A member of the RNA family "mir-214 microRNA precursor family" from Salarias fasciatus, 101 nucleotides long. The source organism's lineage runs through Eukaryota, Neopterygii, Eurypterygia, Salariinae and Salarias. Rfam links the family to the GO terms RISC complex and miRNA-mediated post-transcriptional gene silencing. Rfam 15.1 lists 1,411 matches to the family in 642 species. A search with the family's covariance model found it, with a score of 84 bits. For this family Rfam cites "Identification of novel chicken microRNAs and analysis of their genomic organization" (Shao et al., Gene, 2008).
RNA sequence: CGGCUGAAGCAGUUGUAUGUCUGCCUAUCUACACUUGCUGUGCAGAACAUCCUGGAACCUGUACAGCAGGCACAGACAGGCAGACAGGCAUCCGCCGGGCA
Numbered sequence: 001c002g003g004c005u006g007a008a009g010c011a012g013u014u015g016u017a018u019g020u021c022u023g024c025c026u027a028u029c030u031a032c033a034c035u036u037g038c039u040g041u042g043c044a045g046a047a048c049a050u051c052c053u054g055g056a057a058c059c060u061g062u063a064c065a066g067c068a069g070g071c072a073c074a075g076a077c078a079g080g081c082a083g084a085c086a087g088g089c090a091u092c093c094g095c096c097g098g099g100c101a
Stems, first nucleotide, its partner, number of pairs: 018086002022082005028076003034070001036068006043061003